[Rfam]
RNA: Plastid-rps18 3UTR RNA
RNA sequence: UGCAAGUAUUUUACGGUUAAGAAGCAACCGUCUAUUAUACAAAUUAUGUAUUAAUUU
Numbered sequence: 001u002g003c004a005a006g007u008a009u010u011u012u013a014c015g016g017u018u019a020a021g022a023a024g025c026a027a028c029c030g031u032c033u034a035u036u037a038u039a040c041a042a043a044u045u046a047u048g049u050a051u052u053a054a055u056u057u
Base pairs, nucleotide, nucleotide: 018037019036020035022033024031025030